[Rfam]
RNA sequence: GUUCACAUCUUACCGGGCAGCAUUAGAUUGAAGAGAUGAACGCUCUAAUACUGUCAGGUAAAGAUGUCGUC
Numbered sequence: 001g002u003u004c005a006c007a008u009c010u011u012a013c014c015g016g017g018c019a020g021c022a023u024u025a026g027a028u029u030g031a032a033g034a035g036a037u038g039a040a041c042g043c044u045c046u047a048a049u050a051c052u053g054u055c056a057g058g059u060a061a062a063g064a065u066g067u068c069g070u071c
Stems, first nucleotide, its partner, number of pairs: 003069001005067005010061005016055005022049006
Notes:
A member of the RNA family "mir-8/mir-141/mir-200 microRNA precursor family" from Habropoda laboriosa, 71 nucleotides long. The family's consensus secondary structure was predicted with RNAalifold. The source organism's lineage runs through Eukaryota, Arthropoda, Allotriocarida, Hymenoptera and Habropoda. Gene Ontology terms of the family: miRNA-mediated post-transcriptional gene silencing and RISC complex. The literature on the family includes a 2003 paper in RNA by Lagos-Quintana et al., "New microRNAs from mouse and human".